Rfam assigns this 76-nucleotide RNA from Myotis brandtii to the family "mir-9223 microRNA precursor family".
Its family is annotated with miRNA-mediated post-transcriptional gene silencing and RISC complex in the Gene Ontology.
The organism belongs to Myotis, within Eukaryota.
[Rfam]
RNA sequence: GGUGGUUCUUGGGUGAUAUAGCCCAGAAUUGGGCUUCCUCCUCUCUGGUUCCGGGGUGCGUCACCCGAGAACUGCU
Numbered sequence: 001g002g003u004g005g006u007u008c009u010u011g012g013g014u015g016a017u018a019u020a021g022c023c024c025a026g027a028a029u030u031g032g033g034c035u036u037c038c039u040c041c042u043c044u045c046u047g048g049u050u051c052c053g054g055g056g057u058g059c060g061u062c063a064c065c066c067g068a069g070a071a072c073u074g075c076u
Stems, first nucleotide, its partner, number of pairs: 002075002005072013019058002022055002026051008
Source information: The match comes from Rfam's covariance-model search (74 bits). Pairs were carried over by alignment from the consensus structure, which was predicted with RNAalifold.